[Rfam]
The record is a 117-nucleotide RNA from Rhizobium sp. Leaf371, which matches "Alphaproteobacterial ar14" in Rfam. For this family Rfam cites "A survey of sRNA families in alpha-proteobacteria" (del Val et al., RNA Biol, 2012). Rfam's curators write: Smr14C2 was renamed NfeR1 (Nodule Formation Efficiency RNA) highly expressed in salt stress and during the symbiotic interaction on legume roots.
RNA sequence: UCUCACCGAAGCACCCCUCCUCCUCCCAGGUGCUUCGCGCGAUCCGGGUCACCUCCUCCCGACCCCAGGAUCCAUUCAAGAAGCCUGCCGCACCUCCUCCCGCGGCAGGCUUUUUUG
Numbered sequence: 001u002c003u004c005a006c007c008g009a010a011g012c013a014c015c016c017c018u019c020c021u022c023c024u025c026c027c028a029g030g031u032g033c034u035u036c037g038c039g040c041g042a043u044c045c046g047g048g049u050c051a052c053c054u055c056c057u058c059c060c061g062a063c064c065c066c067a068g069g070a071u072c073c074a075u076u077c078a079a080g081a082a083g084c085c086u087g088c089c090g091c092a093c094c095u096c097c098u099c100c101c102g103c104g105g106c107a108g109g110c111u112u113u114u115u116u117g
Base pairs, nucleotide, nucleotide: 007037008036009035010034011033012032013031014030015029041072042071043070044069045068046065047064048063081112082111083110084109085108086107087106088105089104090103091102